A member of the RNA family "Small nucleolar RNA SNORA81" from Sapajus apella, 180 nucleotides long.
It is annotated as an H/ACA-box small nucleolar RNA.
The family's consensus secondary structure was predicted with WAR.
RNA sequence: ACCUUCUUGUUUAAGCUCUGUUCUAAAAUUGCAAAACUAGUAUCAUUUCUUGGCAUUUGUAAUAAAGCUAUGAGAGAAAACACAAGAAGAAAGAACAACUAAACAACUGUACCAUAUAGGAGAAAAACUGAGUUGAACCUCUUUUUCGUUUGAUUUUAUUUUUGUUUUGAGACGGAGUCU
Numbered sequence: 001a002c003c004u005u006c007u008u009g010u011u012u013a014a015g016c017u018c019u020g021u022u023c024u025a026a027a028a029u030u031g032c033a034a035a036a037c038u039a040g041u042a043u044c045a046u047u048u049c050u051u052g053g054c055a056u057u058u059g060u061a062a063u064a065a066a067g068c069u070a071u072g073a074g075a076g077a078a079a080a081c082a083c084a085a086g087a088a089g090a091a092a093g094a095a096c097a098a099c100u101a102a103a104c105a106a107c108u109g110u111a112c113c114a115u116a117u118a119g120g121a122g123a124a125a126a127a128c129u130g131a132g133u134u135g136a137a138c139c140u141c142u143u144u145u146u147c148g149u150u151u152g153a154u155u156u157u158a159u160u161u162u163u164g165u166u167u168u169g170a171g172a173c174g175g176a177g178u179c180u
Stems, first nucleotide, its partner, number of pairs: 018076002021073002024070002029065003034057002037053004042048001109180001111178002115174001130156001132154001134152004